[Rfam]
RNA sequence: AGCACUUUUCAUAUUGUGCUGACAGAUGUAAGUCCGACGUGCGACACCGCACUGCCAAAGAAUGGCUUUGGGAUUAC
Number, nucleotide and partner (000 for none) at each position: 001a020002g019003c018004a017005c016006u000007u000008u000009u000010c000011a000012u000013a000014u000015u000016g005017u004018g003019c002020u001021g000022a000023c000024a000025g000026a000027u000028g077029u076030a075031a074032g000033u000034c072035c071036g000037a000038c000039g052040u051041g050042c049043g048044a000045c000046a000047c000048c043049g042050c041051a040052c039053u000054g066055c065056c064057a063058a000059a000060g000061a000062a000063u057064g056065g055066c054067u000068u000069u000070g000071g035072g034073a000074u031075u030076a029077c028

Rfam assigns this 77-nucleotide sequence to the family "S15-Methanomicrobia ribosomal protein leader". For this family Rfam cites "Discovery of 20 novel ribosomal leader candidates in bacteria and archaea" (Eckert and Weinberg, BMC Microbiol, 2020). The family's RNA type in Rfam is cis-regulatory leader. It is one of the family's seed sequences. The family's consensus secondary structure is taken from published work.